Source information: The family of this 354-nucleotide RNA sequence from Paenisporosarcina cavernae is "transfer-messenger RNA". The base pairs follow the family's consensus structure, which is taken from published work. NCBI's taxonomy places the organism under Bacteria, Bacillati, Bacilli, Caryophanaceae, Paenisporosarcina. The family is grouped with related families in Rfam's "tRNA clan". The family's RNA type in Rfam is non-coding RNA gene.

[Rfam]
RNA sequence: GGGGACGUUACGGAUUCGACAGGGAUUGUCUUAGCUUGAGUUGCGCGUCGGAGGGCUCGGCUCCGUAUCAACGGCAGUUUAUAAUAACUGGCAAAAACCAAAACCUAGCUUUCGCAGCGUAAGUUGCGUAGCUGCUCGACCUGACCAUCGCCCAUGUGGUUUGGAAGAGCUCAACUUUAGUGGGAUACGAUUCGUGGUGCCACUUGAGUCACGAAUAAGAGAUUUCCAAGUUAGCGUACAAGACGCCUGCUUAUCGGCAUAAUGUUACGCGAAUUGCAAAUAGGUAAGCUACACGCGUAGAAGCUUGAGUGUCAGAGUUUCUGGACGCGGGUUCAACUCCCGCCGUCUCCAUAG
Number, nucleotide and partner (000 for none) at each position: 001g350002g349003g348004g347005a346006c345007g344008u000009u000010a000011c000012g000013g000014a000015u000016u000017c000018g000019a000020c323021a322022g321023g320024g319025a318026u317027u316028g000029u314030c000031u000032u000033a000034g310035c309036u308037u307038g306039a305040g304041u303042u302043g000044c297045g296046c295047g294048u293049c065050g064051g063052a062053g061054g000055g075056c074057u073058c000059g000060g000061c053062u052063c051064c050065g049066u000067a000068u000069c000070a000071a000072c000073g057074g056075c055076a000077g000078u000079u000080u000081a000082u000083a000084a000085u000086a000087a000088c000089u000090g000091g000092c000093a000094a000095a000096a000097a000098c000099c000100a000101a000102a000103a000104c000105c000106u000107a000108g000109c000110u131111u130112u000113c128114g127115c126116a125117g124118c123119g000120u000121a000122a000123g118124u117125u116126g115127c114128g113129u000130a111131g110132c000133u000134g170135c169136u168137c167138g000139a000140c164141c163142u000143g161144a000145c159146c158147a157148u156149c000150g000151c184152c183153c182154a181155u180156g148157u147158g146159g145160u000161u143162u000163g141164g140165a000166a000167g137168a136169g135170c134171u000172c000173a000174a000175c000176u000177u000178u000179a000180g155181u154182g153183g152184g151185a000186u000187a000188c000189g000190a216191u215192u214193c213194g212195u211196g210197g209198u208199g000200c000201c000202a232203c000204u230205u229206g000207a000208g198209u197210c196211a195212c194213g193214a192215a191216u190217a000218a000219g000220a000221g000222a000223u000224u000225u000226c000227c000228a000229a205230g204231u000232u202233a000234g270235c269236g268237u267238a266239c264240a263241a000242g000243a000244c000245g258246c257247c256248u000249g289250c288251u287252u286253a000254u282255c000256g247257g246258c245259a000260u000261a000262a000263u240264g239265u000266u238267a237268c236269g235270c234271g000272a000273a000274u000275u000276g000277c000278a000279a000280a000281u000282a254283g000284g000285u000286a252287a251288g250289c249290u000291a000292c000293a048294c047295g046296c045297g044298u000299a000300g000301a000302a042303g041304c040305u039306u038307g037308a036309g035310u034311g000312u000313c000314a029315g000316a027317g026318u025319u024320u023321c022322u021323g020324g000325a000326c000327g343328c342329g341330g340331g339332u000333u000334c000335a000336a000337c000338u000339c331340c330341c329342g328343c327344c007345g006346u005347c004348u003349c002350c001351a000352u000353a000354g000